[Rfam]
This 502-nucleotide sequence from Endocarpon pusillum belongs to the Rfam family "Nuclear RNase P".

RNA sequence: GUCCCACCAUCGCCGUGUAUAUUUGCUACAAACAAUACUCUCUUCCUCGUGGUCGAGAGUAUUCUAUCACCCGCAAAUGAGAAAUUCGGAGUAAUCUUCAAACACUACACUACCGCUCCUGUCCGUUGCCGCCUCUGGUAGCAUCGUGAUUUGUGGUGGAUAGACUGCCCGUGAGGGUCCGGCGCGAAAGCGUCCGCAGUUUGGCAUCAGAAAUCUACAGGGCCAGUUAGAUCUGAGCUGACCUACUCUUGUAUCUCUCACUCAUCCUUUCGGGGUUGGGUGGUUUCAUUCGAGUUUGGGAUGACGCUAAGCUGGGAUUCCCUAUGGGAGAGCCGUUGCGAAGAUUGUGUGCCUCUCUGCUGCUCGGUUCUCGGACUGGGAGGAGAGGGGGUGAUACUUUAGUGCAAUACGCGGCGUGCCUCGAUCUCUAUCUUUCUUGUCCGUGCAAACGGAUGGAAGGAAGGGAAAGGGUACAAUUCGAUUCCGAUUACUCUGGUGGGAC
Numbered sequence: 001g002u003c004c005c006a007c008c009a010u011c012g013c014c015g016u017g018u019a020u021a022u023u024u025g026c027u028a029c030a031a032a033c034a035a036u037a038c039u040c041u042c043u044u045c046c047u048c049g050u051g052g053u054c055g056a057g058a059g060u061a062u063u064c065u066a067u068c069a070c071c072c073g074c075a076a077a078u079g080a081g082a083a084a085u086u087c088g089g090a091g092u093a094a095u096c097u098u099c100a101a102a103c104a105c106u107a108c109a110c111u112a113c114c115g116c117u118c119c120u121g122u123c124c125g126u127u128g129c130c131g132c133c134u135c136u137g138g139u140a141g142c143a144u145c146g147u148g149a150u151u152u153g154u155g156g157u158g159g160a161u162a163g164a165c166u167g168c169c170c171g172u173g174a175g176g177g178u179c180c181g182g183c184g185c186g187a188a189a190g191c192g193u194c195c196g197c198a199g200u201u202u203g204g205c206a207u208c209a210g211a212a213a214u215c216u217a218c219a220g221g222g223c224c225a226g227u228u229a230g231a232u233c234u235g236a237g238c239u240g241a242c243c244u245a246c247u248c249u250u251g252u253a254u255c256u257c258u259c260a261c262u263c264a265u266c267c268u269u270u271c272g273g274g275g276u277u278g279g280g281u282g283g284u285u286u287c288a289u290u291c292g293a294g295u296u297u298g299g300g301a302u303g304a305c306g307c308u309a310a311g312c313u314g315g316g317a318u319u320c321c322c323u324a325u326g327g328g329a330g331a332g333c334c335g336u337u338g339c340g341a342a343g344a345u346u347g348u349g350u351g352c353c354u355c356u357c358u359g360c361u362g363c364u365c366g367g368u369u370c371u372c373g374g375a376c377u378g379g380g381a382g383g384a385g386a387g388g389g390g391g392u393g394a395u396a397c398u399u400u401a402g403u404g405c406a407a408u409a410c411g412c413g414g415c416g417u418g419c420c421u422c423g424a425u426c427u428c429u430a431u432c433u434u435u436c437u438u439g440u441c442c443g444u445g446c447a448a449a450c451g452g453a454u455g456g457a458a459g460g461a462a463g464g465g466a467a468a469g470g471g472u473a474c475a476a477u478u479c480g481a482u483u484c485c486g487a488u489u490a491c492u493c494u495g496g497u498g499g500g501a502c
Base pairs, nucleotide, nucleotide: 001502002501003500004499007496008495009494012415013414014413015412016411017410018409021078022077023076024075025074035062036061037060038059039058040057041056042055087486088485089484090483091482096343097342098341099340167178168177169176170175181194182193183192184191185190199339200338202335203334204333205332219323220322221321416474417473418472419471420470421469
About the family: Ribonuclease P (RNase P) is a ubiquitous endoribonuclease, found in archaea, bacteria and eukarya as well as chloroplasts and mitochondria.